[Rfam]
RNA sequence: CCUCCCUUUAAACGAGUCCAGAGAGGCUUGCAAGGGGGUAUACUCCUCUAACUUGAAGUGUGCCACUUGGUAUAUUUUAAGUAGAAGACCGUACCUCUUUGUGUAGCAAAGAGGUUUUUUGUAU
Numbered sequence: 001c002c003u004c005c006c007u008u009u010a011a012a013c014g015a016g017u018c019c020a021g022a023g024a025g026g027c028u029u030g031c032a033a034g035g036g037g038g039u040a041u042a043c044u045c046c047u048c049u050a051a052c053u054u055g056a057a058g059u060g061u062g063c064c065a066c067u068u069g070g071u072a073u074a075u076u077u078u079a080a081g082u083a084g085a086a087g088a089c090c091g092u093a094c095c096u097c098u099u100u101g102u103g104u105a106g107c108a109a110a111g112a113g114g115u116u117u118u119u120u121g122u123a124u
Base pairs, nucleotide, nucleotide: 003037004036005035006034007033008032013030014029015028016027017026018025051082052081053080054079055078056077057076058075059074060073061072062071063070064069091117093115094114095113096112097111098110099109100108101107102106
Shown here is a 124-nucleotide sequence from Anaerobacillus arseniciselenatis, a member of the family "PyrR binding site".
A search with the family's covariance model found it, with a score of 70 bits.
Taxonomically the source falls in Anaerobacillus (Bacteria, Bacillati, Caryophanales, Bacillaceae).
Its family is annotated with pyrimidine nucleobase transport and pyrimidine nucleobase biosynthetic process in the Gene Ontology.
By type it is a cis-regulatory element.